Annotation:
Group I catalytic intron: a 338-nucleotide RNA sequence from Ceratocystis platani. From the family's description: Group I catalytic introns are large self-splicing ribozymes. They catalyse their own excision from mRNA, tRNA and rRNA precursors in a wide range of organisms. The core secondary structure consists of 9 paired regions (P1-P9). The family has 12 seed sequences and 5,602 matches in Rfam 15.1. The source organism's lineage runs through Eukaryota, leotiomyceta, Microascales, Ceratocystidaceae and Ceratocystis. The literature on the family includes a 1996 paper in Science by Cate et al., "Crystal structure of a group I ribozyme domain: principles of RNA packing".
[Rfam]
RNA sequence: UGUGAGCUAUUAGUUGGCCAGUAGUAUUGAGCUCGCAACUCUCUACGCAAUACCUUCAAAUUGACGGGAACCUCCUAAAGCUACUUAAACCAAGCUAUGGCAGUAAUAACAUAAGUGGCCGUACUAAUCACACGGGUAUGGUAAAAUAUAAGUAGAUUCCGUAAGGAAAUGGACAAUCCGCAGCCAAGCACCAUAUUAUAAAUUUGUUUCAUUUCAGGUUUUUUUUUUAAUUUUUUAUAAUAUGGUGUGCAGUUCAUCGACUAAAUGUAGGUAGGCAAGAGAUAAUUAAUAAUUAUUACUUGUUUAAGAUAUAGUCAAGCCUCACUCGAAAGGGUGCA
Dot-bracket structure: ..................................................(((((.((...((.((((....(((...............................................................................................)))...))))))((...((((...((((((((...............................))))))))...))))...))...[.[[[[[..)).))))).(((((.(((...........))).)))))........]]]]]].....(((((....)))))..